[Rfam]
RNA sequence: GACCCCUGGCGAAGAGUCGCCGACUGUGGCGGCCUGCUCAGAUCAUUGAGUCUGAGCUAGUCAGGGGGGUUUUCU
Number, nucleotide and partner (000 for none) at each position: 001g071002a070003c069004c068005c067006c066007u065008g062009g061010c060011g000012a000013a000014g000015a000016g033017u032018c031019g030020c029021c028022g000023a000024c000025u000026g000027u000028g021029g020030c019031g018032g017033c016034c000035u000036g057037c056038u055039c054040a053041g052042a051043u050044c000045a000046u000047u000048g000049a000050g043051u042052c041053u040054g039055a038056g037057c036058u000059a000060g010061u009062c008063a000064g000065g007066g006067g005068g004069g003070u002071u001072u000073u000074c000075u000

A member of the RNA family "DUF3800-IX RNA", 75 nucleotides long. It is one of the family's seed sequences.